RNA sequence: ACGGACCUUCGGGGCAGGGUGCAAUUCCCGACCGGCGGUAAAGGUUCCCGUGAACCUGAGCCCGCGACUCUCCGUUUGCCAGUAGGCAGGCGGUGACUGACUUGGUGCAAUUCCAAGGCCGACGGUAUAGUCCGGAUGGGAGAAGGUCAAU
Numbered sequence: 001a002c003g004g005a006c007c008u009u010c011g012g013g014g015c016a017g018g019g020u021g022c023a024a025u026u027c028c029c030g031a032c033c034g035g036c037g038g039u040a041a042a043g044g045u046u047c048c049c050g051u052g053a054a055c056c057u058g059a060g061c062c063c064g065c066g067a068c069u070c071u072c073c074g075u076u077u078g079c080c081a082g083u084a085g086g087c088a089g090g091c092g093g094u095g096a097c098u099g100a101c102u103u104g105g106u107g108c109a110a111u112u113c114c115a116a117g118g119c120c121g122a123c124g125g126u127a128u129a130g131u132c133c134g135g136a137u138g139g140g141a142g143a144a145g146g147u148c149a150a151u
Stems, first nucleotide, its partner, number of pairs: 004148007017029003031131002033121002035065004060119002069096002101117005123134003
RNA: FMN riboswitch aptamer (RFN element)
Organism: Paenibacillus cremeus